[Rfam]
RNA sequence: ACCUUAUAUAGAUGUAGUGACGCAAGACAGUGACGCAUUUCCCUGCAAGGUGGUGUUUCAAUAGAAGUAUAAACGACAAGUCUUAUUGUGUAGCUCUAGAGUUGAAAUAAGGUGAGUUUAUAUGUAAUAGGUUAACCGUAAGACCUUGAAUUGAGAAAUUCUAAAAUUGAUUUCAAUAAUUUUUUAUAAUUAUUGAAUUACGGUCAG
Numbered sequence: 001a002c003c004u005u006a007u008a009u010a011g012a013u014g015u016a017g018u019g020a021c022g023c024a025a026g027a028c029a030g031u032g033a034c035g036c037a038u039u040u041c042c043c044u045g046c047a048a049g050g051u052g053g054u055g056u057u058u059c060a061a062u063a064g065a066a067g068u069a070u071a072a073a074c075g076a077c078a079a080g081u082c083u084u085a086u087u088g089u090g091u092a093g094c095u096c097u098a099g100a101g102u103u104g105a106a107a108u109a110a111g112g113u114g115a116g117u118u119u120a121u122a123u124g125u126a127a128u129a130g131g132u133u134a135a136c137c138g139u140a141a142g143a144c145c146u147u148g149a150a151u152u153g154a155g156a157a158a159u160u161c162u163a164a165a166a167u168u169g170a171u172u173u174c175a176a177u178a179a180u181u182u183u184u185u186a187u188a189a190u191u192a193u194u195g196a197a198u199u200a201c202g203g204u205c206a207g
Base pairs, nucleotide, nucleotide: 001051002050003049004048005047007045008044010040011039012038013037014036015035017034018033020031021030022028067123068122069121070120071119072118073117074116081112082111083110084109085108086107087106092103093102095100129146130145131144132143133142135204136203137202138201139200140199141167148161149160150159151158152157172197173196174195175194176193177192178191179190180189181188
Description:
IS605-orfB-I RNA: a 207-nucleotide RNA. The family's RNA type in Rfam is small RNA.